[Rfam]
The record is a 215-nucleotide sequence from Oryctolagus cuniculus, which matches "U2 spliceosomal RNA" in Rfam. Rfam classes the family as a spliceosomal small nuclear RNA. Its Rfam clan is "U2 clan". The organism belongs to Oryctolagus, within Eukaryota.
RNA sequence: AUCGCUUCUCGGCCUUUUGGCUAAGAUCAAGUGUAGGAUAUUUCUACCUUAACUUGGGAUGUGGGAAAGCAUCCUAAGAUCAGAACAGUGAGGGUUUUUUAAUACUGUUUUUAAAAUUGUAGUAAAAUCUAUGUAAUGUGGAAUUGAUCAUUUCAAGCAUUUUUAAGUGUGUGAUUCAGUGGCAUGAAGUACAUUCACUUCCUUGUGCGCCCAUC
Numbered sequence: 001a002u003c004g005c006u007u008c009u010c011g012g013c014c015u016u017u018u019g020g021c022u023a024a025g026a027u028c029a030a031g032u033g034u035a036g037g038a039u040a041u042u043u044c045u046a047c048c049u050u051a052a053c054u055u056g057g058g059a060u061g062u063g064g065g066a067a068a069g070c071a072u073c074c075u076a077a078g079a080u081c082a083g084a085a086c087a088g089u090g091a092g093g094g095u096u097u098u099u100u101a102a103u104a105c106u107g108u109u110u111u112u113a114a115a116a117u118u119g120u121a122g123u124a125a126a127a128u129c130u131a132u133g134u135a136a137u138g139u140g141g142a143a144u145u146g147a148u149c150a151u152u153u154c155a156a157g158c159a160u161u162u163u164u165a166a167g168u169g170u171g172u173g174a175u176u177c178a179g180u181g182g183c184a185u186g187a188a189g190u191a192c193a194u195u196c197a198c199u200u201c202c203u204u205g206u207g208c209g210c211c212c213a214u215c
Stems, first nucleotide, its partner, number of pairs: 007026003011022004046095005097116006144178001146176006158169004184214003189208005